[Rfam]
RNA: MIR474 microRNA precursor family
Organism: Populus trichocarpa
RNA sequence: UCCAAAAGUUGUUGGGUCUUGUUGGGCAACGUGAUCUAAUGCUAUGAACCCAACGCCAUUAGGUCUUGCUGGACAAUGCUAUUAGAUUCUGGCAAGUCAGACCCAACAAUAUUUUUUGACU
Numbered sequence: 001u002c003c004a005a006a007a008g009u010u011g012u013u014g015g016g017u018c019u020u021g022u023u024g025g026g027c028a029a030c031g032u033g034a035u036c037u038a039a040u041g042c043u044a045u046g047a048a049c050c051c052a053a054c055g056c057c058a059u060u061a062g063g064u065c066u067u068g069c070u071g072g073a074c075a076a077u078g079c080u081a082u083u084a085g086a087u088u089c090u091g092g093c094a095a096g097u098c099a100g101a102c103c104c105a106a107c108a109a110u111a112u113u114u115u116u117u118g119a120c121u
Stems, first nucleotide, its partner, number of pairs: 001119002004116006011107009021097003025093001027091002033065008070085001072083002